[Rfam]
Nucleotides: 075
Stems, first nucleotide, its partner, number of pairs: 002035012036071013
Number, partner (000 for none) and nucleotide at each position: 001000a002035g003034u004033g005032c006031a007030u008029g009028g010027g011026c012025u013024c014000u015000u016000c017000c018000c019000c020000c021000c022000c023000a024013g025012a026011g027010c028009c029008u030007a031006u032005g033004c034003a035002c036071g037070g038069c039068g040067a041066c042065c043064c044063c045062c046061g047060u048059c049000a050000c051000c052000c053000c054000c055000c056000c057000c058000c059048g060047a061046c062045g063044g064043g065042g066041g067040u068039c069038g070037c071036c072000c073000c074000a075000u